[Rfam]
RNA sequence: UGAGGCUGAUACUUUUUCCUUAACUCAUGCCGCUGUGCCUUUAUAUUUUAUUUCACAAUUGUAUGAGUUGAGUACAGAGUAUCAGUCCA
Numbered sequence: 001u002g003a004g005g006c007u008g009a010u011a012c013u014u015u016u017u018c019c020u021u022a023a024c025u026c027a028u029g030c031c032g033c034u035g036u037g038c039c040u041u042u043a044u045a046u047u048u049u050a051u052u053u054c055a056c057a058a059u060u061g062u063a064u065g066a067g068u069u070g071a072g073u074a075c076a077g078a079g080u081a082u083c084a085g086u087c088c089a
Base pairs, nucleotide, nucleotide: 004087005086006085007084008083009082010081011080012079013078019072020071021070022069023068024067025066026065027064028063034057035056036055037054
Description
The family of this 89-nucleotide RNA from Gallus gallus is "mir-1426 microRNA precursor family". The sequence is in the family's curated seed alignment. Gene Ontology terms of the family: RISC complex and miRNA-mediated post-transcriptional gene silencing. Lineage of the source: Eukaryota > Deuterostomia > Theropoda > Aves > Gallus. The family has 2 seed sequences and 326 matches in Rfam 15.1.